RNA: Purine riboswitch aptamer
Organism: Clostridium acidisoli
RNA sequence: AGUUUAUUUGAAUAAUACAUCCGUAUAAUCUCAAUAAUUGGUUUGAGAGUUUCUACCAAGGUACCGUAAAAUCUUGACUAUGGGUGAAUCAGAAUAGAUA
Numbered sequence: 001a002g003u004u005u006a007u008u009u010g011a012a013u014a015a016u017a018c019a020u021c022c023g024u025a026u027a028a029u030c031u032c033a034a035u036a037a038u039u040g041g042u043u044u045g046a047g048a049g050u051u052u053c054u055a056c057c058a059a060g061g062u063a064c065c066g067u068a069a070a071a072u073c074u075u076g077a078c079u080a081u082g083g084g085u086g087a088a089u090c091a092g093a094a095u096a097g098a099u100a
Stems, first nucleotide, its partner, number of pairs: 018086008029048006057076006